[Rfam]
The record is a 116-nucleotide sequence from Lupinus angustifolius, which matches "Small nucleolar RNA Z278" in Rfam. About the family: snoZ278 is a C/D box small nucleolar RNA. Its methylation guide targets have not been reported. The match comes from Rfam's covariance-model search (55 bits). Pairs were carried over by alignment from the consensus structure, which was predicted with PFOLD. The organism belongs to Lupinus, within Eukaryota. It is annotated as a C/D-box small nucleolar RNA.

RNA sequence: GCUUGUGAUGAUUUAAUCCAUCUAGUUUGAGGUGUAGUGGAACUAAGCCCAUGUUUACAUGGAGAACCUACUUGGGGAAGCUACGUUCAUAUGACAUCAUUGGAUUAUUCUGAGGC
Numbered sequence: 001g002c003u004u005g006u007g008a009u010g011a012u013u014u015a016a017u018c019c020a021u022c023u024a025g026u027u028u029g030a031g032g033u034g035u036a037g038u039g040g041a042a043c044u045a046a047g048c049c050c051a052u053g054u055u056u057a058c059a060u061g062g063a064g065a066a067c068c069u070a071c072u073u074g075g076g077g078a079a080g081c082u083a084c085g086u087u088c089a090u091a092u093g094a095c096a097u098c099a100u101u102g103g104a105u106u107a108u109u110c111u112g113a114g115g116c
Base pairs, nucleotide, nucleotide: 001116002115003114049062050061051060052059053058